[Rfam]
RNA: mir-1421 microRNA precursor family
RNA sequence: UGGUGUUAGGUGGGCAUGUGGUGCAGUAUGAUAGUGGAAUAUACUGCAUCGCGUGUGACCUCCCUACACGAC
Numbered sequence: 001u002g003g004u005g006u007u008a009g010g011u012g013g014g015c016a017u018g019u020g021g022u023g024c025a026g027u028a029u030g031a032u033a034g035u036g037g038a039a040u041a042u043a044c045u046g047c048a049u050c051g052c053g054u055g056u057g058a059c060c061u062c063c064c065u066a067c068a069c070g071a072c
Stems, first nucleotide, its partner, number of pairs: 003069004009063002012060002015057002017053003021049005